A member of the RNA family "Rhodo-rpoB RNA" from Tritonibacter multivorans, 94 nucleotides long. Pairs were carried over by alignment from the consensus structure, which is taken from published work. NCBI's taxonomy places the organism under Bacteria, Pseudomonadati, Pseudomonadota, Alphaproteobacteria, Tritonibacter. It scores 82 bits against the family's covariance model.
RNA sequence: GGAUCGGGAGGUCGCCAUUCGGGACGGCGGCCAUGAAUUGAUCCGACCGCGCUGUCUCUGAUGGGCAAGAAGCCGGGGCCCGGCGGCAUUCUUG
Numbered sequence: 001g002g003a004u005c006g007g008g009a010g011g012u013c014g015c016c017a018u019u020c021g022g023g024a025c026g027g028c029g030g031c032c033a034u035g036a037a038u039u040g041a042u043c044c045g046a047c048c049g050c051g052c053u054g055u056c057u058c059u060g061a062u063g064g065g066c067a068a069g070a071a072g073c074c075g076g077g078g079c080c081c082g083g084c085g086g087c088a089u090u091c092u093u094g
Stems, first nucleotide, its partner, number of pairs: 001044005010032007066094005072087004
Dot-bracket structure: (((((....(((((((.........))))))).......))))).....................(((((.((((........))))..)))))